[Rfam]
A member of the RNA family "Small nucleolar RNA SNORD43" from Equus caballus, 64 nucleotides long. The family's RNA type in Rfam is C/D-box small nucleolar RNA. U43 is a C/D box small nucleolar RNA that is encoded in intron 1 of the ribosomal protein L3 gene in human and cow. The base pairs follow the family's consensus structure. Its Rfam clan is "SNORD43 clan". Rfam 15.1 lists 264 matches to the family in 132 species.

RNA sequence: CGCAGGUGAUGAGCUUAUUGACGGGCGGACAGAGACUCUGUGCUGAUUGUCACGUUCUGAUGUG
Numbered sequence: 001c002g003c004a005g006g007u008g009a010u011g012a013g014c015u016u017a018u019u020g021a022c023g024g025g026c027g028g029a030c031a032g033a034g035a036c037u038c039u040g041u042g043c044u045g046a047u048u049g050u051c052a053c054g055u056u057c058u059g060a061u062g063u064g
Stems, first nucleotide, its partner, number of pairs: 001064004